[Rfam]
RNA sequence: AGGCAAUGAUGUGUUAGUCGUGCACCACUCUGAUAUAGAUCCUUCUAGGAUCCUGUGCUGAGAAUUCUCUCUACCCAUUAUUUCUCUGAGCCU
Numbered sequence: 001a002g003g004c005a006a007u008g009a010u011g012u013g014u015u016a017g018u019c020g021u022g023c024a025c026c027a028c029u030c031u032g033a034u035a036u037a038g039a040u041c042c043u044u045c046u047a048g049g050a051u052c053c054u055g056u057g058c059u060g061a062g063a064a065u066u067c068u069c070u071c072u073a074c075c076c077a078u079u080a081u082u083u084c085u086c087u088g089a090g091c092c093u
Base pairs, nucleotide, nucleotide: 001093002092003091004090
RNA: Small nucleolar RNA Z221/R21b
Organism: Arabis alpina